[Rfam]
RNA sequence: AGGAAAGGAGCAAUAACCAAUUUCUUGUUCUAUCAAGAGUUGAUUAUUGCUCCUUAA
Numbered sequence: 001a002g003g004a005a006a007g008g009a010g011c012a013a014u015a016a017c018c019a020a021u022u023u024c025u026u027g028u029u030c031u032a033u034c035a036a037g038a039g040u041u042g043a044u045u046a047u048u049g050c051u052c053c054u055u056a057a
Stems, first nucleotide, its partner, number of pairs: 005055011019041002022039006

Notes
The family of this 57-nucleotide sequence from Lumnitzera racemosa is "Plastid-psbA-4 3UTR RNA". It is annotated as a cis-regulatory element. On this family, see Richter et al., Plant Commun 2023: "Retrograde signaling in plants: A critical review focusing on the GUN pathway and beyond". The sequence is in the family's curated seed alignment. Plastid psbA-4 is a non-coding RNA (ncRNA) present in plastids. It was identified in inverted repeat sequences in the 3 prime untranslate region (3UTR) of photosystem II quinone-binding protein (psbA).